[Rfam]
RNA sequence: CAAGACCUUCGGGGCAGGGUGCAAUUCCCGACCGGCGGUAUGGCGGCCACACGCCAGCAGGCUAGCACACCUGCGCGCUCCCUACUAUGCCACAGCCGCGUGUGAGCUGCCAAGCCCGCGACUCGCUGCGCGUCGCUGAGAGUGGCCAGACUGGCCAUCAGGAUGGACCACCCUGAUGGCUGAUGGGCCACCAGUGACCGGCGCCAGCGAUGGAUUCGGUGAGAGGCCGAAGCCGACGGUAACAGUCCGGAUGGGAGAAGGCUUGG
Numbered sequence: 001c002a003a004g005a006c007c008u009u010c011g012g013g014g015c016a017g018g019g020u021g022c023a024a025u026u027c028c029c030g031a032c033c034g035g036c037g038g039u040a041u042g043g044c045g046g047c048c049a050c051a052c053g054c055c056a057g058c059a060g061g062c063u064a065g066c067a068c069a070c071c072u073g074c075g076c077g078c079u080c081c082c083u084a085c086u087a088u089g090c091c092a093c094a095g096c097c098g099c100g101u102g103u104g105a106g107c108u109g110c111c112a113a114g115c116c117c118g119c120g121a122c123u124c125g126c127u128g129c130g131c132g133u134c135g136c137u138g139a140g141a142g143u144g145g146c147c148a149g150a151c152u153g154g155c156c157a158u159c160a161g162g163a164u165g166g167a168c169c170a171c172c173c174u175g176a177u178g179g180c181u182g183a184u185g186g187g188c189c190a191c192c193a194g195u196g197a198c199c200g201g202c203g204c205c206a207g208c209g210a211u212g213g214a215u216u217c218g219g220u221g222a223g224a225g226g227c228c229g230a231a232g233c234c235g236a237c238g239g240u241a242a243c244a245g246u247c248c249g250g251a252u253g254g255g256a257g258a259a260g261g262c263u264u265g266g
Base pairs, nucleotide, nucleotide: 003264004263006261007260008259009258010257017029018028019027031246032245033235034234035119036118037117038116123210124209125208126207127206128205215231216230217229218228219227237249238248239247